Record summary: A member of the RNA family "Bacterial RNase P class A" from Bizionia argentinensis, 319 nucleotides long. Pairs were carried over by alignment from the consensus structure, which is taken from published work. The organism belongs to Bizionia argentinensis, within Bacteria. By type it is a ribozyme.
[Rfam]
RNA sequence: CAAGUAGAUCGCCUUAUCGAACCAAAUUUAUUUUGGUUAGGAAAGUCCGAACACCAGAGUGCAAACAUAGUGGCUAACAGCCACCAGCCGUAAGGUUAGGAAAAGUGCAACAGAAAGUAUGUACAGGUAAUGCUGUAGUGAAACCAGGUAAACUCUAUGUGGUGCAAUGUCAUGUAUACCAACGUUUGAGCACGGCACGUGCGAUUGUUGGAGGGUAGGCAGCUAGAGUGUAUUGGCAACAAUACAUCCAGAUAAAUGAUAAGGGCUUUUUAGUUUUAAUUAAAAAGUACAGAAUUCGGCUUAUAGAUUUACUUAAAUA
Numbered sequence: 001c002a003a004g005u006a007g008a009u010c011g012c013c014u015u016a017u018c019g020a021a022c023c024a025a026a027u028u029u030a031u032u033u034u035g036g037u038u039a040g041g042a043a044a045g046u047c048c049g050a051a052c053a054c055c056a057g058a059g060u061g062c063a064a065a066c067a068u069a070g071u072g073g074c075u076a077a078c079a080g081c082c083a084c085c086a087g088c089c090g091u092a093a094g095g096u097u098a099g100g101a102a103a104a105g106u107g108c109a110a111c112a113g114a115a116a117g118u119a120u121g122u123a124c125a126g127g128u129a130a131u132g133c134u135g136u137a138g139u140g141a142a143a144c145c146a147g148g149u150a151a152a153c154u155c156u157a158u159g160u161g162g163u164g165c166a167a168u169g170u171c172a173u174g175u176a177u178a179c180c181a182a183c184g185u186u187u188g189a190g191c192a193c194g195g196c197a198c199g200u201g202c203g204a205u206u207g208u209u210g211g212a213g214g215g216u217a218g219g220c221a222g223c224u225a226g227a228g229u230g231u232a233u234u235g236g237c238a239a240c241a242a243u244a245c246a247u248c249c250a251g252a253u254a255a256a257u258g259a260u261a262a263g264g265g266c267u268u269u270u271u272a273g274u275u276u277u278a279a280u281u282a283a284a285a286a287g288u289a290c291a292g293a294a295u296u297c298g299g300c301u302u303a304u305a306g307a308u309u310u311a312c313u314u315a316a317a318u319a
Stems, first nucleotide, its partner, number of pairs: 002314009011304001012264007020038007043302003047299005052164004065160005070084005085099001086097004100155002105153002107149002122137005168221004179211005190202004228247008